[Rfam]
RNA sequence: CUCUGGAGAGCAUCUAUUCGCCCUGUGCGGGCGUUAUGAUCACCCAAGGGGAAACCUGCUGCAUCAUGCGGCGGGGUAACUCUCAGGUACCAAGGACAGAG
Numbered sequence: 001c002u003c004u005g006g007a008g009a010g011c012a013u014c015u016a017u018u019c020g021c022c023c024u025g026u027g028c029g030g031g032c033g034u035u036a037u038g039a040u041c042a043c044c045c046a047a048g049g050g051g052a053a054a055c056c057u058g059c060u061g062c063a064u065c066a067u068g069c070g071g072c073g074g075g076g077u078a079a080c081u082c083u084c085a086g087g088u089a090c091c092a093a094g095g096a097c098a099g100a101g
Stems, first nucleotide, its partner, number of pairs: 001101005012040003042088003046083001049082003055075009
RNA: Glycine riboswitch aptamer